A member of the RNA family "RNA Staph. aureus E (RoxS)" from Litchfieldia stipae, 120 nucleotides long.
The source organism's lineage runs through Bacteria, Bacillota, Caryophanales, Bacillaceae and Litchfieldia.
It was shown to be regulated by the presence of nitric oxide (NO).
For this family Rfam cites "A nitric oxide regulated small RNA controls expression of genes involved in redox homeostasis in Bacillus subtilis" (Durand et al., PLoS Genet, 2015).
The family's consensus secondary structure is taken from published work.
Gene Ontology term of the family: regulation of translational initiation.
A search with the family's covariance model found it, with a score of 103 bits.

[Rfam]
RNA sequence: AUGAAGUUAGUCACAAACCAAACAUAUACCCCUUUGUUUGACCGUGAAAAAUUUCUCCCAUCCCCUUUAUUGUCUUAAAUGACAAGAAAAAAGACUUGGUCCUAUAACCAAGUCUUUUUU
Number, nucleotide and partner (000 for none) at each position: 001a000002u000003g055004a054005a053006g052007u051008u050009a000010g000011u047012c046013a045014c044015a000016a000017a000018c000019c040020a039021a038022a037023c036024a035025u000026a000027u000028a000029c000030c000031c000032c000033u000034u000035u024036g023037u022038u021039u020040g019041a000042c000043c000044g014045u013046g012047a011048a000049a000050a008051a007052u006053u005054u004055c003056u000057c000058c000059c000060a000061u000062c000063c000064c000065c000066u000067u000068u000069a000070u000071u086072g000073u000074c000075u000076u000077a000078a000079a000080u000081g000082a000083c000084a000085a000086g071087a000088a000089a000090a117091a116092a115093g114094a113095c112096u111097u110098g109099g108100u107101c000102c000103u000104a000105u000106a000107a100108c099109c098110a097111a096112g095113u094114c093115u092116u091117u090118u000119u000120u000